[Rfam]
The record is an 80-nucleotide RNA from Pteropus alecto, which matches "mir-877 microRNA precursor family" in Rfam.

RNA sequence: GUAGAGGAGAUGGCGCAGGGGAUACGGACUAAGACUUGGGGGUUCCUGCAAUCUUCAGACCUGUGUCCUCCUCUUCUCAG
Number, nucleotide and partner (000 for none) at each position: 001g000002u000003a000004g000005a000006g000007g078008a077009g000010a000011u000012g076013g075014c000015g073016c000017a000018g070019g069020g068021g067022a066023u065024a064025c063026g062027g000028a000029c000030u000031a000032a000033g000034a000035c000036u058037u057038g056039g055040g054041g053042g052043u050044u000045c000046c000047u000048g000049c000050a043051a000052u042053c041054u040055u039056c038057a037058g036059a000060c000061c000062u026063g025064u024065g023066u022067c021068c020069u019070c018071c000072u000073c015074u000075u013076c012077u008078c007079a000080g000

Pairs were carried over by alignment from the consensus structure, which was predicted with RNAalifold. On this family, see Berezikov et al., Genome Res 2006: "Many novel mammalian microRNA candidates identified by extensive cloning and RAKE analysis".